The family of this 78-nucleotide sequence from Laodelphax striatellus is "Small nucleolar RNA snR60/Z15/Z230/Z193/J17". The family is grouped with related families in Rfam's "SNORD77 clan".
RNA sequence: UUAGUGCCAAUGAUGAUUUCAUAGUUCAGUUGAUUAUGAAGCGUGAAAACAAAUUUUCGCCCCUAUCUGAUGCACUCG
Numbered sequence: 001u002u003a004g005u006g007c008c009a010a011u012g013a014u015g016a017u018u019u020c021a022u023a024g025u026u027c028a029g030u031u032g033a034u035u036a037u038g039a040a041g042c043g044u045g046a047a048a049a050c051a052a053a054u055u056u057u058c059g060c061c062c063c064u065a066u067c068u069g070a071u072g073c074a075c076u077c078g
Base pairs, nucleotide, nucleotide: 004075005074006073007072